[Rfam]
RNA: Small nucleolar RNA SNORD25
Nucleotides: 082
Base pairs, nucleotide, nucleotide: 002081003080004079005078006077
Number, partner (000 for none) and nucleotide at each position: 001000u002081g003080g004079c005078a006077c007000u008000g009000u010000g011000a012000u013000g014000a015000u016000a017000g018000c019000c020000u021000u022000u023000g024000a025000u026000a027000a028000c029000g030000a031000u032000g033000a034000u035000u036000u037000g038000c039000g040000a041000g042000g043000a044000u045000g046000a047000u048000c049000g050000c051000a052000a053000a054000c055000c056000a057000a058000a059000g060000a061000a062000c063000a064000u065000c066000u067000a068000a069000g070000g071000g072000a073000c074000u075000g076000a077006g078005u079004g080003c081002c082000g